[Rfam]
About this RNA
mir-181 microRNA precursor family: an 81-nucleotide RNA sequence from Bagarius yarrelli. The family has 157 seed sequences and 3,490 matches in Rfam 15.1. The family's consensus secondary structure was predicted with PFOLD. Its family is annotated with miRNA-mediated post-transcriptional gene silencing and RISC complex in the Gene Ontology. Lineage of the source: Eukaryota > Craniata > Otomorpha > Ostariophysi > Bagarius.

RNA sequence: UGGCUGCGAUAAACAUUCAUUGCUGUCGGUGGGUUUCCAGCAAACACAACUCACUGAUCAAUGAAUGCACACUGCGGUUCA
Numbered sequence: 001u002g003g004c005u006g007c008g009a010u011a012a013a014c015a016u017u018c019a020u021u022g023c024u025g026u027c028g029g030u031g032g033g034u035u036u037c038c039a040g041c042a043a044a045c046a047c048a049a050c051u052c053a054c055u056g057a058u059c060a061a062u063g064a065a066u067g068c069a070c071a072c073u074g075c076g077g078u079u080c081a
Base pairs, nucleotide, nucleotide: 001081002080003079004077005076006075007074008073014067015066016065017064018063019062020061021060022059025058026057027056028055029054030053031052033050034049035048